[Rfam]
RNA sequence: AGCCCCAUUUCAGUACCUUCCACUCACCGUGACUGGACGGCUAUGCUAAUGGGGCAGAAUAACACUGUCAUGAUCUGAAGGUGUGGCUGGCUGACUGUGCGCCCCACUCAAUGAAAUGACAAUACAUCUAUCG
Numbered sequence: 001a002g003c004c005c006c007a008u009u010u011c012a013g014u015a016c017c018u019u020c021c022a023c024u025c026a027c028c029g030u031g032a033c034u035g036g037a038c039g040g041c042u043a044u045g046c047u048a049a050u051g052g053g054g055c056a057g058a059a060u061a062a063c064a065c066u067g068u069c070a071u072g073a074u075c076u077g078a079a080g081g082u083g084u085g086g087c088u089g090g091c092u093g094a095c096u097g098u099g100c101g102c103c104c105c106a107c108u109c110a111a112u113g114a115a116a117u118g119a120c121a122a123u124a125c126a127u128c129u130a131u132c133g
Stems, first nucleotide, its partner, number of pairs: 004053004016040002019037004067120004085108002088106002
Shown here is a 133-nucleotide RNA sequence from Salarias fasciatus, a member of the family "Small nucleolar RNA SNORA29".
By type it is an H/ACA-box small nucleolar RNA.
Lineage of the source: Eukaryota > Opisthokonta > Bilateria > Salariinae > Salarias.
Gene Ontology terms of the family: RNA processing and nucleolus.
On this family, see Huttenhofer et al., EMBO J 2001: "RNomics: an experimental approach that identifies 201 candidates for novel, small, non-messenger RNAs in mouse".